[Rfam]
RNA: pemK RNA
RNA sequence: AUAAUGAUACUCCUGUACAGUCACAGUCCGAGCGUUCAAAGCGUCGCAGGCAAUGAGUACAGUUGGACGAGAACCGUGCAAGGGUGAAAUUCCCGUGA
Dot-bracket structure: ...........(((((((......................................))))))(((.(((.....))).)))(((.......))))...